About this RNA: The family of this 102-nucleotide RNA from Zingiber officinale is "Small nucleolar RNA SNORD90". snoRNA HBII-295 belongs to the family of C/D snoRNAs. It is the human orthologue of the mouse MBII-295 and has no identified RNA target. The literature on the family includes a 2001 paper in EMBO J by Huttenhofer et al., "RNomics: an experimental approach that identifies 201 candidates for novel, small, non-messenger RNAs in mouse". The family's RNA type in Rfam is C/D-box small nucleolar RNA. Rfam 15.1 lists 545 matches to the family in 524 species.

[Rfam]
RNA sequence: AUUCUGAAUUCUGGGAUGAAUCCUAGAUUCGUCCCAGAUUCUGGGAUGAAUCCUGGAUUCAUCCCAGAUUCUGGGAUGAAUCCUGGAUUCGUCCCAAAAUUU
Numbered sequence: 001a002u003u004c005u006g007a008a009u010u011c012u013g014g015g016a017u018g019a020a021u022c023c024u025a026g027a028u029u030c031g032u033c034c035c036a037g038a039u040u041c042u043g044g045g046a047u048g049a050a051u052c053c054u055g056g057a058u059u060c061a062u063c064c065c066a067g068a069u070u071c072u073g074g075g076a077u078g079a080a081u082c083c084u085g086g087a088u089u090c091g092u093c094c095c096a097a098a099a100u101u102u
Base pairs, nucleotide, nucleotide: 013095014094015093016092017091018090019089020088021087026082027081028080029079030078031077032076033075034074035073036072037069040068041067043065045063046062047061048060049059050058